[Rfam]
Background
The family of this 167-nucleotide sequence from Arthrobacter sp. SRS-W-1-2016 is "c-di-AMP riboswitch aptamer (ydaO/yuaA leader)". The match comes from Rfam's covariance-model search (50 bits).

RNA sequence: AGGUUCCGUUCGCAAAACAUCGUCUGGCAGAGGCGGGGGACCCACUUUUGGUCAUCUUCACGGAUGGCCUUGGGGUUAAGUCGCACAACUUCCGAGAGGGAGAAGUGUGGCCGGAUGACUCCCAUCCGAAUCCGACAGCUUACCUCGCGGGCAUAGGGAGAGGCCUC
Numbered sequence: 001a002g003g004u005u006c007c008g009u010u011c012g013c014a015a016a017a018c019a020u021c022g023u024c025u026g027g028c029a030g031a032g033g034c035g036g037g038g039g040a041c042c043c044a045c046u047u048u049u050g051g052u053c054a055u056c057u058u059c060a061c062g063g064a065u066g067g068c069c070u071u072g073g074g075g076u077u078a079a080g081u082c083g084c085a086c087a088a089c090u091u092c093c094g095a096g097a098g099g100g101a102g103a104a105g106u107g108u109g110g111c112c113g114g115a116u117g118a119c120u121c122c123c124a125u126c127c128g129a130a131u132c133c134g135a136c137a138g139c140u141u142a143c144c145u146c147g148c149g150g151g152c153a154u155a156g157g158g159a160g161a162g163g164c165c166u167c
Stems, first nucleotide, its partner, number of pairs: 004032003033148006043072002073133003081110006113127004